[Rfam]
sul1 RNA: a 53-nucleotide sequence from Allostella humosa. The family's consensus secondary structure is taken from published work. By type it is a riboswitch.
RNA sequence: AUCGGACCCGGCCUGCCGGGUGGCUCCGCCGGGCGCCUAUCCCCCGGACAAUG
Number, nucleotide and partner (000 for none) at each position: 001a000002u000003c000004g000005g000006a021007c020008c019009c018010g017011g016012c000013c000014u000015g000016c011017c010018g009019g008020g007021u006022g000023g000024c000025u000026c000027c000028g000029c047030c046031g045032g044033g043034c000035g000036c000037c000038u000039a000040u000041c000042c000043c033044c032045c031046g030047g029048a000049c000050a000051a000052u000053g000